[Rfam]
RNA: HIV gag stem loop 3 (GSL3)
Organism: Lentivirus humimdef1
RNA sequence: GGCCAGGAGGAAAGAAACAUUAUAUGCUAAAACACCUAAUAUGGGCAAGCAAAGAGCUGGAAAGAUUUGCACUUAACCCUGGCC
Numbered sequence: 001g002g003c004c005a006g007g008a009g010g011a012a013a014g015a016a017a018c019a020u021u022a023u024a025u026g027c028u029a030a031a032a033c034a035c036c037u038a039a040u041a042u043g044g045g046c047a048a049g050c051a052a053a054g055a056g057c058u059g060g061a062a063a064g065a066u067u068u069g070c071a072c073u074u075a076a077c078c079c080u081g082g083c084c
Base pairs, nucleotide, nucleotide: 001084002083003082004081005080006079007078